[Rfam]
RNA: Vault RNA
Organism: Callorhinus ursinus
RNA sequence: GGGUCGGCUUUAGCUCAAGCGGUUACUUCGCACAGUGUCUGUCACACUUCAAUCCCUCUACGGGGGUUCGAGACCCGCGGGCGCUUUCUGACCCUUUU
Number, nucleotide and partner (000 for none) at each position: 001g000002g093003g092004u091005c090006g089007g088008c000009u000010u000011u000012a000013g082014c081015u080016c079017a000018a000019g078020c077021g076022g075023u000024u000025a000026c000027u072028u071029c070030g069031c000032a000033c000034a000035g000036u000037g000038u000039c000040u000041g000042u000043c000044a000045c000046a000047c000048u000049u000050c000051a000052a000053u000054c000055c000056c000057u000058c000059u000060a000061c000062g000063g000064g000065g000066g000067u000068u000069c030070g029071a028072g027073a000074c000075c022076c021077g020078c019079g016080g015081g014082c013083g000084c000085u000086u000087u000088c007089u006090g005091a004092c003093c002094c000095u000096u000097u000098u000